[Rfam]
RNA sequence: UGUCUCCUCCACCCUCCUUUUGGUGGAUUUAUUGCCCAAGCAAAUUUUGCUUGGGCUCUUUUUU
Numbered sequence: 001u002g003u004c005u006c007c008u009c010c011a012c013c014c015u016c017c018u019u020u021u022g023g024u025g026g027a028u029u030u031a032u033u034g035c036c037c038a039a040g041c042a043a044a045u046u047u048u049g050c051u052u053g054g055g056c057u058c059u060u061u062u063u064u
Stems, first nucleotide, its partner, number of pairs: 008027006034056007
Dot-bracket structure: .......((((((........))))))......(((((((.........)))))))........
The record is a 64-nucleotide RNA from Ephemeroptericola cinctiostellae, which matches "Betaproteobacteria toxic small RNA" in Rfam. The literature on the family includes a 2012 paper in Genome Res by Kimelman et al., "A vast collection of microbial genes that are toxic to bacteria". Rfam 15.1 lists 951 matches to the family in 508 species. The family's consensus secondary structure was predicted with WAR. The match comes from Rfam's covariance-model search (54 bits). About the family: Overexpression in amino aid rich medium attenuates growth, suggesting role in repressing amino acid intake and metabolism.